[Rfam]
RNA sequence: UGCCUUCAUGUGUUGCCCAUCCAUGUUCUCCUAGCUGGAUGUGGUGUCAAAUAAGGCAUAUAGAAACUCUUGUCAUAGCUUUGGCUCACAGCCCUAUUCAGUGGGUUGUGUGUGUGAGAUGCUGUGAGAACAAUA
Numbered sequence: 001u002g003c004c005u006u007c008a009u010g011u012g013u014u015g016c017c018c019a020u021c022c023a024u025g026u027u028c029u030c031c032u033a034g035c036u037g038g039a040u041g042u043g044g045u046g047u048c049a050a051a052u053a054a055g056g057c058a059u060a061u062a063g064a065a066a067c068u069c070u071u072g073u074c075a076u077a078g079c080u081u082u083g084g085c086u087c088a089c090a091g092c093c094c095u096a097u098u099c100a101g102u103g104g105g106u107u108g109u110g111u112g113u114g115u116g117a118g119a120u121g122c123u124g125u126g127a128g129a130a131c132a133a134u135a
Base pairs, nucleotide, nucleotide: 002057003056004055005054006053011049012048014046015045016044017043018041019040020039021038022037023036069128070127074126075125076124077123078122079121085116087114088113089112091109094105095104

The record is a 135-nucleotide RNA from Bagarius yarrelli, which matches "Small nucleolar RNA SNORA13" in Rfam. It scores 64 bits against the family's covariance model. Rfam describes the family as follows. ACA13 is a member of the H/ACA class of snoRNA that guide the sites of modification of uridines to pseudouridines. Clan: SNORA13 clan. Rfam links the family to the GO terms nucleolus and RNA processing.